[Rfam]
Fluoride riboswitch aptamer (crcB RNA motif): a 55-nucleotide RNA from Lacticaseibacillus paracasei. Lineage of the source: Bacteria > Bacillati > Lactobacillales > Lactobacillaceae > Lacticaseibacillus paracasei. Gene Ontology terms of the family: response to fluoride and positive regulation of gene expression.
RNA sequence: AAAUUAAAUGGCGAUGGUGUUCGCCUAUACGCAAGUUGAUGACACCUACCUUGAG
Numbered sequence: 001a002a003a004u005u006a007a008a009u010g011g012c013g014a015u016g017g018u019g020u021u022c023g024c025c026u027a028u029a030c031g032c033a034a035g036u037u038g039a040u041g042a043c044a045c046c047u048a049c050c051u052u053g054a055g
Base pairs, nucleotide, nucleotide: 010025011024012023013022016046017045018044019043020042021041